RNA sequence: GACCUGUAUUUUGAACUGUCACCGGAUGGUGGCGUGUCAGGCACAACCUGUCUAGAAACGUGGUCGGAA
Numbered sequence: 001g002a003c004c005u006g007u008a009u010u011u012u013g014a015a016c017u018g019u020c021a022c023c024g025g026a027u028g029g030u031g032g033c034g035u036g037u038c039a040g041g042c043a044c045a046a047c048c049u050g051u052c053u054a055g056a057a058a059c060g061u062g063g064u065c066g067g068a069a
Base pairs, nucleotide, nucleotide: 001065002064003063004062006061007060009058010057011056012055017034018033019032020031021030022029023028036052038050039049040048
DUF3800-IX RNA: a 69-nucleotide sequence. Rfam's curators write: Actinobacteria, Firmicutes (1 example), Nitrospirae, Proteobacteria, Verrucomicrobia (1 example). Pairs were carried over by alignment from the consensus structure, which is taken from published work.